Record summary: The record is a 144-nucleotide sequence from Streptomyces sp. WAC 01438, which matches "Streptomyces-metH RNA" in Rfam. The base pairs follow the family's consensus structure, which is taken from published work. It scores 95 bits against the family's covariance model. The family's RNA type in Rfam is small RNA.

RNA sequence: AUCGUCCGCCCCCUGGACGCCCUGAACAUCAGGGCGCGGUCCCGGAUACCCUGACGGCGUGCGCCCUGCCGGAAAGUGCGAACGGAAGCUUUCCGGACAGCCGCAAAGCCGACAGCCGUCGCACCUGAGGGAGCCCCUUUCAUG
Numbered sequence: 001a002u003c004g005u006c007c008g009c010c011c012c013c014u015g016g017a018c019g020c021c022c023u024g025a026a027c028a029u030c031a032g033g034g035c036g037c038g039g040u041c042c043c044g045g046a047u048a049c050c051c052u053g054a055c056g057g058c059g060u061g062c063g064c065c066c067u068g069c070c071g072g073a074a075a076g077u078g079c080g081a082a083c084g085g086a087a088g089c090u091u092u093c094c095g096g097a098c099a100g101c102c103g104c105a106a107a108g109c110c111g112a113c114a115g116c117c118g119u120c121g122c123a124c125c126u127g128a129g130g131g132a133g134c135c136c137c138u139u140u141c142a143u144g
Stems, first nucleotide, its partner, number of pairs: 060105004066100003108122002111120003